[Rfam]
RNA sequence: AUGCGUUAAGCAACAACACACACACGUCGGCACAUCCGGUUGGGUGCCGGACUCUACCAUUGAAUCCUAGAGUUUGGUUAUCGGAUGGGGCGUGUGGAGGCAAAAC
Number, nucleotide and partner (000 for none) at each position: 001a000002u000003g000004c000005g000006u000007u000008a000009a000010g000011c000012a000013a000014c000015a000016a000017c000018a000019c000020a000021c096022a095023c094024a093025c092026g091027u090028c089029g000030g000031c000032a000033c087034a086035u085036c084037c083038g082039g081040u080041u000042g000043g000044g000045u000046g078047c077048c076049g075050g074051a073052c072053u071054c070055u069056a068057c000058c000059a000060u000061u000062g000063a000064a000065u000066c000067c000068u056069a055070g054071a053072g052073u051074u050075u049076g048077g047078u046079u000080a040081u039082c038083g037084g036085a035086u034087g033088g000089g028090g027091c026092g025093u024094g023095u022096g021097g000098a000099g000100g000101c000102a000103a000104a000105a000106c000
RNA: t44 RNA